[Rfam]
RNA sequence: AAACGUUUAUAUAUUAUCUAUUCUGUGUAUGACUAGGAGUAAACCUGUGAACCGAACUACCUUCUGCUGCCUU
Numbered sequence: 001a002a003a004c005g006u007u008u009a010u011a012u013a014u015u016a017u018c019u020a021u022u023c024u025g026u027g028u029a030u031g032a033c034u035a036g037g038a039g040u041a042a043a044c045c046u047g048u049g050a051a052c053c054g055a056a057c058u059a060c061c062u063u064c065u066g067c068u069g070c071c072u073u
Base pairs, nucleotide, nucleotide: 002015003014005012006011025070026069027067028066029065031064032063035062036061037060038058039057040056
RNA: FHbp 5' UTR thermometer
Organism: Neisseria gonorrhoeae